[Rfam]
RNA sequence: AAAUAAAGCUAGGGGUGCCCACGCGGCUGAGAAUUGGAAUAUGCCAUAACCCUUUACCUGAUCUGGAUAAUGCCAGCGAAGGGAAGCGUCUUGAAUACAAG
Numbered sequence: 001a002a003a004u005a006a007a008g009c010u011a012g013g014g015g016u017g018c019c020c021a022c023g024c025g026g027c028u029g030a031g032a033a034u035u036g037g038a039a040u041a042u043g044c045c046a047u048a049a050c051c052c053u054u055u056a057c058c059u060g061a062u063c064u065g066g067a068u069a070a071u072g073c074c075a076g077c078g079a080a081g082g083g084a085a086g087c088g089u090c091u092u093g094a095a096u097a098c099a100a101g
Stems, first nucleotide, its partner, number of pairs: 006089001008087003011053004017027003034046001036044001038042001057082003063076004
The family of this 101-nucleotide RNA from Pectinatus brassicae is "TPP riboswitch aptamer (THI element)".
The match comes from Rfam's covariance-model search (65 bits).